[Rfam]
RNA sequence: AACGAAAACCGCGGGAGCUCGCACCGGAAGCGGGCUGAGAGGGCGGCUGGAGUCGAUCUCCGGGGCCGCCGACCGCAUGAACCUGACCGGGUAAUACCGGCGUAGGGAGGGAACACGGCCAUGGC
Numbered sequence: 001a002a003c004g005a006a007a008a009c010c011g012c013g014g015g016a017g018c019u020c021g022c023a024c025c026g027g028a029a030g031c032g033g034g035c036u037g038a039g040a041g042g043g044c045g046g047c048u049g050g051a052g053u054c055g056a057u058c059u060c061c062g063g064g065g066c067c068g069c070c071g072a073c074c075g076c077a078u079g080a081a082c083c084u085g086a087c088c089g090g091g092u093a094a095u096a097c098c099g100g101c102g103u104a105g106g107g108a109g110g111g112a113a114c115a116c117g118g119c120c121a122u123g124g125c
Base pairs, nucleotide, nucleotide: 009110010109011076012075013074014073017035018034019033020032021031042070043069044068045067046066047065048064082106083105084104085103087100088099089098090097

TPP riboswitch aptamer (THI element): a 125-nucleotide RNA sequence from Actinopolyspora mortivallis. About the family: Vitamin B(1) in its active form thiamin pyrophosphate (TPP) is an essential coenzyme that is synthesised by coupling of pyrimidine and thiazole moieties in bacteria.